[Rfam]
Small nucleolar SNORD12/SNORD106: a 91-nucleotide RNA sequence from Trichechus manatus. It is annotated as a C/D-box small nucleolar RNA. Clan: SNORD12 clan. Its family is annotated with RNA processing and nucleolus in the Gene Ontology. A search with the family's covariance model found it, with a score of 96 bits. The family's consensus secondary structure was predicted with RNAalifold.

RNA sequence: GCUGGUAUAAGUGAUGACUUUACUUUUUUCCCCAUCAUAUCGACAAUGCUGAUGUCUUUGAACACUUGCCAGUUAGUUCUGAUAUAUCAGC
Numbered sequence: 001g002c003u004g005g006u007a008u009a010a011g012u013g014a015u016g017a018c019u020u021u022a023c024u025u026u027u028u029u030c031c032c033c034a035u036c037a038u039a040u041c042g043a044c045a046a047u048g049c050u051g052a053u054g055u056c057u058u059u060g061a062a063c064a065c066u067u068g069c070c071a072g073u074u075a076g077u078u079c080u081g082a083u084a085u086a087u088c089a090g091c
Stems, first nucleotide, its partner, number of pairs: 001091009
Rfam 15.1 lists 2,264 matches to the family in 650 species.